This 36-nucleotide sequence from Haliscomenobacter hydrossis belongs to the Rfam family "abiF RNA". Rfam 15.1 lists 282 matches to the family in 274 species. Rfam describes the family as follows. Actinobacteria, Bacteroidetes, Clostridia, Proteobacteria, one Clostridia phage.
[Rfam]
RNA sequence: CCCUCCAUGCCUCUCGACGAAGCACACUUGGAGGGU
Numbered sequence: 001c002c003c004u005c006c007a008u009g010c011c012u013c014u015c016g017a018c019g020a021a022g023c024a025c026a027c028u029u030g031g032a033g034g035g036u
Base pairs, nucleotide, nucleotide: 001035002034003033004032005031006030008024009023010022